[Rfam]
RNA sequence: UGGCUAGUAUCUUUAAUAGAACUAGACUAUUUGAUUUAUGUUUAUAGCAAAAUAAAUAGUAAAUACGACUAGUAUCCUAAUUAGGAACUAGAACGGGAG
Numbered sequence: 001u002g003g004c005u006a007g008u009a010u011c012u013u014u015a016a017u018a019g020a021a022c023u024a025g026a027c028u029a030u031u032u033g034a035u036u037u038a039u040g041u042u043u044a045u046a047g048c049a050a051a052a053u054a055a056a057u058a059g060u061a062a063a064u065a066c067g068a069c070u071a072g073u074a075u076c077c078u079a080a081u082u083a084g085g086a087a088c089u090a091g092a093a094c095g096g097g098a099g
Stems, first nucleotide, its partner, number of pairs: 001029003004025005010020002066095002069091005075086003

A member of the RNA family "pan motif" from Gottschalkia purinilytica, 99 nucleotides long. The match comes from Rfam's covariance-model search (48 bits). It is annotated as a cis-regulatory element. The family's consensus secondary structure is taken from published work.